[Rfam]
The record is a 105-nucleotide sequence from Anaerobranca californiensis, which matches "Glycine riboswitch aptamer" in Rfam.
RNA sequence: AUGAACUGUGCGGGAGAGACCACUUAAAUGUGGCGCCGAAGGAGCAAUUUUACCUUAAGCCAAGGGGUAAAAUAAACUCUCAGGCAAAAGGACCGCUAAGGGACC
Number, nucleotide and partner (000 for none) at each position: 001a000002u000003g000004a000005a000006c100007u099008g000009u000010g096011c095012g094013g093014g000015a000016g000017a000018g000019a000020c033021c032022a031023c030024u000025u000026a000027a000028a000029u000030g023031u022032g021033g020034c000035g085036c084037c083038g081039a080040a000041g000042g079043a078044g077045c000046a000047a000048u072049u071050u070051u069052a068053c067054c066055u065056u064057a000058a000059g000060c000061c000062a000063a000064g056065g055066g054067g053068u052069a051070a050071a049072a048073u000074a000075a000076a000077c044078u043079c042080u039081c038082a000083g037084g036085c035086a000087a000088a000089a000090g000091g000092a000093c013094c012095g011096c010097u000098a000099a007100g006101g000102g000103a000104c000105c000
Record summary:
The organism belongs to Anaerobranca californiensis, within Bacteria.